[Rfam]
RNA sequence: AACAAGAUGGAAGAGGACAGACGGGGACGAGGCAGAGCAUGAGAUGAGGCUUUAAUCAUCACAAACACUUGUGCUGUUUCUCUUCCCCUGCACUGCCUCUUCCCUGGCUCUCCUCUCUCUUGCUCU
Number, nucleotide and partner (000 for none) at each position: 001a000002a000003c000004a000005a000006g000007a000008u000009g000010g000011a000012a000013g000014a000015g000016g000017a000018c000019a109020g108021a000022c106023g105024g104025g103026g102027a101028c000029g000030a098031g097032g096033c095034a094035g093036a000037g091038c090039a089040u000041g087042a000043g086044a000045u000046g000047a000048g081049g000050c000051u000052u000053u000054a000055a000056u000057c000058a000059u000060c000061a000062c000063a000064a000065a000066c000067a000068c000069u000070u000071g000072u000073g000074c000075u000076g000077u000078u000079u000080c000081u048082c000083u000084u000085c000086c043087c041088c000089u039090g038091c037092a000093c035094u034095g033096c032097c031098u030099c000100u000101u027102c026103c025104c024105u023106g022107g000108c020109u019110c000111u000112c000113c000114u000115c000116u000117c000118u000119c000120u000121u000122g000123c000124u000125c000126u000
Rfam assigns this 126-nucleotide RNA from Actinidia chinensis to the family "MIR408 microRNA precursor family". The literature on the family includes a 2004 paper in Plant Cell by Sunkar and Zhu, "Novel and stress-regulated microRNAs and other small RNAs from Arabidopsis". The organism belongs to Actinidia chinensis, within Eukaryota. Pairs were carried over by alignment from the consensus structure, which was predicted with WAR. The match comes from Rfam's covariance-model search (76 bits).